[Rfam]
RNA sequence: AGGCAGGGGUUCAAUCGCGACGACCCCGUGAGGCGUCAGCCCAAUGUUCGCGUCCAGGCUCUCUGUUGAGGUGGACGCCAUG
Numbered sequence: 001a002g003g004c005a006g007g008g009g010u011u012c013a014a015u016c017g018c019g020a021c022g023a024c025c026c027c028g029u030g031a032g033g034c035g036u037c038a039g040c041c042c043a044a045u046g047u048u049c050g051c052g053u054c055c056a057g058g059c060u061c062u063c064u065g066u067u068g069a070g071g072u073g074g075a076c077g078c079c080a081u082g
Base pairs, nucleotide, nucleotide: 006027007026008025009024010023050078051077052076053075054074055073